About this RNA:
This 125-nucleotide RNA from Patiria miniata belongs to the Rfam family "Vault RNA". The match comes from Rfam's covariance-model search (48 bits). The base pairs follow the family's consensus structure, which is taken from published work.
RNA sequence: GUGCUGGCUCAGCAGUGUGGAUACUUCGUUGAGUAGUUCAUUGGUUGAAUUUAAGGUCAGAGUCCUUAAGGAGUGGGUUCGAUUCCCACCUUAACAUCAAUCCACACGCGCAGUCCAGUACUUUU
Numbered sequence: 001g002u003g004c005u006g007g008c009u010c011a012g013c014a015g016u017g018u019g020g021a022u023a024c025u026u027c028g029u030u031g032a033g034u035a036g037u038u039c040a041u042u043g044g045u046u047g048a049a050u051u052u053a054a055g056g057u058c059a060g061a062g063u064c065c066u067u068a069a070g071g072a073g074u075g076g077g078u079u080c081g082a083u084u085c086c087c088a089c090c091u092u093a094a095c096a097u098c099a100a101u102c103c104a105c106a107c108g109c110g111c112a113g114u115c116c117a118g119u120a121c122u123u124u125u
Stems, first nucleotide, its partner, number of pairs: 002120006012109002017105004026082003
For this family Rfam cites "Evolution of Vault RNAs" (Stadler et al., Mol Biol Evol, 2009).